The record is a 102-nucleotide RNA sequence from Desulfosporosinus orientis, which matches "Purine riboswitch aptamer" in Rfam. The family's consensus secondary structure is taken from published work. NCBI's taxonomy places the organism under Bacteria, Bacillati, Eubacteriales, Desulfitobacteriaceae, Desulfosporosinus orientis.
RNA sequence: UAUAAAAAUUUAAUAAGAGUUCAUAUAAUAGUGGAGAUAUGGUCCGCAAGUUUCUACCAGGUCGCCGUAAAUGAUCUGACUAUGAGCGAAAGUGUACCUAGG
Number, nucleotide and partner (000 for none) at each position: 001u000002a000003u000004a000005a000006a000007a000008a000009u000010u000011u000012a000013a000014u000015a000016a000017g000018a000019g087020u086021u085022c084023a083024u082025a081026u000027a000028a000029u049030a000031g047032u046033g045034g044035a043036g000037a000038u000039a000040u000041g000042g000043u035044c034045c033046g032047c031048a000049a029050g000051u000052u000053u000054c000055u000056a000057c000058c078059a077060g076061g075062u074063c073064g072065c000066c000067g000068u000069a000070a000071a000072u064073g063074a062075u061076c060077u059078g058079a000080c000081u025082a024083u023084g022085a021086g020087c019088g000089a000090a000091a000092g000093u000094g000095u000096a000097c000098c000099u000100a000101g000102g000